[Rfam]
RNA sequence: UUACGUUUACCCUGUAGAUCCGAAUUUGUGUAUGAAACAAUCUACAAAUUCGUUUUUGCGGGUGAUUGUGUC
Numbered sequence: 001u002u003a004c005g006u007u008u009a010c011c012c013u014g015u016a017g018a019u020c021c022g023a024a025u026u027u028g029u030g031u032a033u034g035a036a037a038c039a040a041u042c043u044a045c046a047a048a049u050u051c052g053u054u055u056u057u058g059c060g061g062g063u064g065a066u067u068g069u070g071u072c
Stems, first nucleotide, its partner, number of pairs: 002070004007065001010062003016057003021052010
The record is a 72-nucleotide RNA from Lottia gigantea, which matches "mir-10 microRNA precursor family" in Rfam. Pairs were carried over by alignment from the consensus structure, which was predicted with PFOLD. The source organism's lineage runs through Eukaryota, Metazoa, Eumetazoa, Protostomia and Lottia. Its family is annotated with miRNA-mediated post-transcriptional gene silencing and RISC complex in the Gene Ontology.